RNA sequence: AAGUUUAAGACUACACUAUAGCUGUUAAGUGCUAUGUUGUCAUUCCCCAUGCUCAAAAUAUGUUGUUUCUUAACUACAUCUGUCUGCUAUAACUCACAUAGCAGCUAGAGAUGCUUGGACUCAUACUC
Numbered sequence: 001a002a003g004u005u006u007a008a009g010a011c012u013a014c015a016c017u018a019u020a021g022c023u024g025u026u027a028a029g030u031g032c033u034a035u036g037u038u039g040u041c042a043u044u045c046c047c048c049a050u051g052c053u054c055a056a057a058a059u060a061u062g063u064u065g066u067u068u069c070u071u072a073a074c075u076a077c078a079u080c081u082g083u084c085u086g087c088u089a090u091a092a093c094u095c096a097c098a099u100a101g102c103a104g105c106u107a108g109a110g111a112u113g114c115u116u117g118g119a120c121u122c123a124u125a126c127u128c
Base pairs, nucleotide, nucleotide: 001050003048013040014039015038017036018035019034020033021032022031079109080108081107082106084104085103086102087101
This 128-nucleotide sequence from Tupaia belangeri belongs to the Rfam family "Small nucleolar RNA SNORA63". The base pairs follow the family's consensus structure, which was predicted with PFOLD. The match comes from Rfam's covariance-model search (96 bits). On this family, see Mishra and Eliceiri, Proc Natl Acad Sci U S A 1997: "Three small nucleolar RNAs that are involved in ribosomal RNA precursor processing". Rfam classes the family as an H/ACA-box small nucleolar RNA. Rfam describes the family as follows. E3 belongs to the H/ACA class of snoRNAs and is involved in the processing of eukaryotic pre-rRNA and has regions of complementarity to 18S rRNA. E3 is encoded in introns in the gene for protein synthesis initiation factor 4AII. Lineage of the source: Eukaryota > Metazoa > Chordata > Scandentia > Tupaia belangeri. Its family is annotated with RNA processing and nucleolus in the Gene Ontology. Rfam 15.1 lists 1,279 matches to the family in 601 species.